The family of this 361-nucleotide RNA from Alkalimonas amylolytica is "transfer-messenger RNA". Taxonomically the source falls in Alkalimonas (Bacteria, Pseudomonadati, Pseudomonadota, Gammaproteobacteria). Its Rfam clan is "tRNA clan". For this family Rfam cites "BRUCE: a program for the detection of transfer-messenger RNA genes in nucleotide sequences" (Laslett et al., Nucleic Acids Res, 2002). Gene Ontology term of the family: RNA catabolic process. It is annotated as a non-coding RNA gene.
RNA sequence: GGGGCUGAUUCUGGAUUCGACGGGAUUCACGAACUCUUAGGUGCAUGCCGAGGUGCGGUAGGCCUCGUAAAAAAACCGCAAACCAAUAGUCGCAAACGACGAAAACUACGCAAUCGCUGCUUAAUAGGCAGUAGAUAGCUCUCCCGCUCUUGCAUGCCUGUAAGCAGAGGUAACGGGGGAUCACCCUAAACAGGAUCGCGUUGCGGCUUCGCCUGGAGCCAAUACGUUAAAACCAAUCAGGCUCGCCCGACGAUAGCCUGCCAUUCGGCGCUCAUAGGGUUAACUAAAUGAAUUGGCUAAGCAUGUAGUACCGAGGAUGUAGGUUUUUCGGACGGGGGUUCAACUCCCCCCAGCUCCACCA
Number, nucleotide and partner (000 for none) at each position: 001g357002g356003g355004g354005c353006u352007g351008a000009u000010u000011c000012u000013g000014g000015a000016u000017u000018c000019g000020a000021c330022g329023g328024g327025a326026u000027u000028c323029a000030c000031g000032a000033a000034c000035u317036c316037u315038u314039a000040g312041g311042u310043g000044c305045a304046u303047g302048c301049c067050g066051a065052g064053g063054u080055g079056c078057g077058g076059u075060a000061g000062g000063c053064c052065u051066c050067g049068u000069a000070a000071a000072a000073a000074a000075a059076c058077c057078g056079c055080a054081a000082a000083c000084c000085a000086a000087u000088a000089g000090u000091c000092g000093c000094a000095a000096a000097c000098g000099a000100c000101g000102a000103a000104a000105a000106c000107u000108a000109c000110g000111c000112a000113a136114u135115c134116g132117c131118u130119g129120c000121u000122u000123a000124a000125u000126a000127g000128g000129c119130a118131g117132u116133a000134g115135a114136u113137a000138g000139c000140u180141c179142u178143c177144c176145c175146g000147c169148u168149c167150u166151u000152g165153c164154a000155u000156g000157c194158c193159u192160g191161u190162a000163a000164g153165c152166a150167g149168a148169g147170g000171u000172a000173a000174c000175g145176g144177g143178g142179g141180a140181u000182c000183a000184c000185c000186c000187u000188a000189a000190a161191c160192a159193g158194g157195a000196u000197c000198g000199c226200g225201u224202u000203g000204c000205g000206g000207c000208u000209u000210c000211g242212c241213c240214u239215g238216g000217a000218g000219c000220c000221a000222a000223u000224a201225c200226g199227u000228u000229a000230a000231a000232a000233c000234c000235a000236a000237u000238c215239a214240g213241g212242c211243u000244c000245g280246c279247c278248c277249g000250a275251c000252g273253a272254u000255a000256g269257c268258c267259u000260g297261c296262c295263a294264u291265u290266c000267g258268g257269c256270g000271c000272u253273c252274a000275u250276a000277g248278g247279g246280u245281u000282a000283a000284c000285u000286a000287a000288a000289u000290g265291a264292a000293u000294u263295g262296g261297c260298u000299a000300a000301g048302c047303a046304u045305g044306u000307a000308g000309u000310a042311c041312c040313g000314a038315g037316g036317a035318u000319g000320u000321a000322g000323g028324u000325u000326u025327u024328u023329c022330g021331g000332a000333c000334g350335g349336g348337g347338g346339u000340u000341c000342a000343a000344c000345u000346c338347c337348c336349c335350c334351c007352a006353g005354c004355u003356c002357c001358a000359c000360c000361a000